[Rfam]
RNA sequence: AAGCAUUCUGAUGACUGACGGAUAAUUGUGGAGUACCACAGAGGAAUCAGAAGUCGUAUUAAGCCGACCGUCUGGGCAACAUUU
Numbered sequence: 001a002a003g004c005a006u007u008c009u010g011a012u013g014a015c016u017g018a019c020g021g022a023u024a025a026u027u028g029u030g031g032a033g034u035a036c037c038a039c040a041g042a043g044g045a046a047u048c049a050g051a052a053g054u055c056g057u058a059u060u061a062a063g064c065c066g067a068c069c070g071u072c073u074g075g076g077c078a079a080c081a082u083u084u
Base pairs, nucleotide, nucleotide: 003055006052007051008050009049010048011047012046015043016042017072018071019070020069021068028039029038030037031036063077064076065075
RNA: ZMP/ZTP riboswitch aptamer (pfl RNA motif)